[Rfam]
RNA sequence: GCACAGACCCAGGAUUGCUGACUCCUAGUCCAGUGCUCGUGGUGGCUACUGGGCUCUGAACUAGGGGUCUGGAGGCCUGGGUUUGAACGUC
Numbered sequence: 001g002c003a004c005a006g007a008c009c010c011a012g013g014a015u016u017g018c019u020g021a022c023u024c025c026u027a028g029u030c031c032a033g034u035g036c037u038c039g040u041g042g043u044g045g046c047u048a049c050u051g052g053g054c055u056c057u058g059a060a061c062u063a064g065g066g067g068u069c070u071g072g073a074g075g076c077c078u079g080g081g082u083u084u085g086a087a088c089g090u091c
Stems, first nucleotide, its partner, number of pairs: 008081006015074002018071001020069007028061002031058003035054004